[Rfam]
RNA sequence: ACACGAGAAGGGAGGUGGUCCACGCUUUGUAUGCACAUAGGACUCGUGAGGUGACUGUCAGCUAGCCGGUCUCGUGGUCCUCACCCUUGCCGGGUGGCCCUCGGGCACCGGCGCCGGCGAGAACCAGGCAGUUACCGGGCCCCCGGGUGCCGUCGAUCAGUCCCGACGGCCCACUCCGCCUACCAGGCAGAGUGGAAGCCCGGGGGUUUCUGCGU
Numbered sequence: 001a002c003a004c005g006a007g008a009a010g011g012g013a014g015g016u017g018g019u020c021c022a023c024g025c026u027u028u029g030u031a032u033g034c035a036c037a038u039a040g041g042a043c044u045c046g047u048g049a050g051g052u053g054a055c056u057g058u059c060a061g062c063u064a065g066c067c068g069g070u071c072u073c074g075u076g077g078u079c080c081u082c083a084c085c086c087u088u089g090c091c092g093g094g095u096g097g098c099c100c101u102c103g104g105g106c107a108c109c110g111g112c113g114c115c116g117g118c119g120a121g122a123a124c125c126a127g128g129c130a131g132u133u134a135c136c137g138g139g140c141c142c143c144c145g146g147g148u149g150c151c152g153u154c155g156a157u158c159a160g161u162c163c164c165g166a167c168g169g170c171c172c173a174c175u176c177c178g179c180c181u182a183c184c185a186g187g188c189a190g191a192g193u194g195g196a197a198g199c200c201c202g203g204g205g206g207u208u209u210c211u212g213c214g215u
Stems, first nucleotide, its partner, number of pairs: 014059006061118003065114002068112001071110001074108003137209012152170004157165001